The family of this 76-nucleotide RNA sequence from Peucedramus taeniatus is "Small nucleolar RNA SNORD69".
The family's RNA type in Rfam is C/D-box small nucleolar RNA.
The organism belongs to Peucedramus, within Eukaryota.
RNA sequence: UGCACAAAGCACAUGAUGACAAAACACUGAAACUGACUGUGUGAAGAACAUUCAGUCCAACACUGAGGUUUGUGUC
Numbered sequence: 001u002g003c004a005c006a007a008a009g010c011a012c013a014u015g016a017u018g019a020c021a022a023a024a025c026a027c028u029g030a031a032a033c034u035g036a037c038u039g040u041g042u043g044a045a046g047a048a049c050a051u052u053c054a055g056u057c058c059a060a061c062a063c064u065g066a067g068g069u070u071u072g073u074g075u076c
Stems, first nucleotide, its partner, number of pairs: 002075007010067001

Source information: Rfam's curators write: snoRNA HBII-210 belongs to the C/D family of snoRNAs. It is the human orthologue of the mouse MBII-210 and is predicted to guide the 2'O-ribose methylation of large 28S rRNA on residue G4464. A reference for the family is Huttenhofer et al. (2001), "RNomics: an experimental approach that identifies 201 candidates for novel, small, non-messenger RNAs in mouse", EMBO J. The pairing is the family consensus, mapped onto this sequence.